[Rfam]
Annotation:
The family of this 76-nucleotide RNA sequence from Polaribacter cellanae is "Flavo-1 RNA". The family has 201 seed sequences and 7,497 matches in Rfam 15.1. It is annotated as a small RNA.

RNA sequence: CAAUUGCGUUAGGGAUUGAAACGGCAUCCUUUUUGCUUUUUUAAGCAAAAAGAUAUAGUGGAAAGCCCGUUAAAAC
Numbered sequence: 001c002a003a004u005u006g007c008g009u010u011a012g013g014g015a016u017u018g019a020a021a022c023g024g025c026a027u028c029c030u031u032u033u034u035g036c037u038u039u040u041u042u043a044a045g046c047a048a049a050a051a052g053a054u055a056u057a058g059u060g061g062a063a064a065g066c067c068c069g070u071u072a073a074a075a076c
Stems, first nucleotide, its partner, number of pairs: 012068003016064002021059002026054003032049006